[Rfam]
Notes
This 117-nucleotide sequence from Raphanus sativus belongs to the Rfam family "mir-399 microRNA precursor family".

RNA sequence: AAAUGCAUUACAGGUCAAGAUCUCCUUUGGCAGGAAUCUAUUACUUCAGUCUUACAUAUGCAUAUAUAUGUUUGUGGUAAGCUCUCUGCCAAAGGAGAUUUGUCCGGUAAUUCUUUG
Dot-bracket structure: ....(.(((.(.((.((((..((((..(((((((.(..............................................).)))))))..)))).)))).)).).))).)....

On this family, see Jones-Rhoades and Bartel, Mol Cell 2004: "Computational Identification of Plant MicroRNAs and Their Targets, Including a Stress-Induced miRNA".
About the family: mir-399 was identified in both Arabidopsis thaliana and Oryza sativa computationally and was later experimentally verified. mir-399 is thought to target mRNAs coding for a phosphatase transporter. The mature sequence is excised from the 3' arm of the hairpin.
Gene Ontology terms of the family: RISC complex and miRNA-mediated post-transcriptional gene silencing.